Rfam assigns this 93-nucleotide RNA sequence from Deferribacter desulfuricans to the family "Selenocysteine transfer RNA". The literature on the family includes a 2000 paper in FEBS Lett by Mizutani and Goto, "Eukaryotic selenocysteine tRNA has the 9/4 secondary structure". NCBI's taxonomy places the organism under Bacteria, Pseudomonadati, Deferribacteres, Deferribacteraceae, Deferribacter desulfuricans. Rfam links the family to the GO term triplet codon-amino acid adaptor activity.
[Rfam]
RNA sequence: GGGAGUGGUUGGGAAGCUGGUGCUCCCCGCGGCCUUCAAAGCCGAUUGGCCCGUUAUCUUAGCGGGCGGAAGGUUCGAUCCCUUCCCACUCCC
Numbered sequence: 001g002g003g004a005g006u007g008g009u010u011g012g013g014a015a016g017c018u019g020g021u022g023c024u025c026c027c028c029g030c031g032g033c034c035u036u037c038a039a040a041g042c043c044g045a046u047u048g049g050c051c052c053g054u055u056a057u058c059u060u061a062g063c064g065g066g067c068g069g070a071a072g073g074u075u076c077g078a079u080c081c082c083u084u085c086c087c088a089c090u091c092c093c
Stems, first nucleotide, its partner, number of pairs: 001093008012027002015024003030044004049067005070084004